[Rfam]
RNA sequence: GUGCUGGCAGGCGGUGGAGUCCGCCUUGUAACCGCCCUUUGGGCCGAUGACUCCUUCCACAAC
Dot-bracket structure: .........[[[[..((((((]]]]........(((.....)))....)))))).........

Notes: The family of this 63-nucleotide RNA from Hephaestia caeni is "Fluoride riboswitch aptamer (crcB RNA motif)". The organism belongs to Hephaestia, within Bacteria. Gene Ontology terms of the family: positive regulation of gene expression and response to fluoride. The match comes from Rfam's covariance-model search (43 bits).